This 85-nucleotide sequence from Phtheirospermum japonicum belongs to the Rfam family "Small nucleolar RNA R16". The family's RNA type in Rfam is C/D-box small nucleolar RNA. A search with the family's covariance model found it, with a score of 84 bits. Pairs were carried over by alignment from the consensus structure, which was predicted with PFOLD. Its family is annotated with nucleolus and RNA processing in the Gene Ontology.

[Rfam]
RNA sequence: UAUGGCAAAUGAUGAUAUUUAAAUCUUAUCCUACACACUGAUUGUCUAUGUUGACAAAAAACUCCGCUUAUUAUCUGAUGCCAUG
Numbered sequence: 001u002a003u004g005g006c007a008a009a010u011g012a013u014g015a016u017a018u019u020u021a022a023a024u025c026u027u028a029u030c031c032u033a034c035a036c037a038c039u040g041a042u043u044g045u046c047u048a049u050g051u052u053g054a055c056a057a058a059a060a061a062c063u064c065c066g067c068u069u070a071u072u073a074u075c076u077g078a079u080g081c082c083a084u085g
Stems, first nucleotide, its partner, number of pairs: 003083005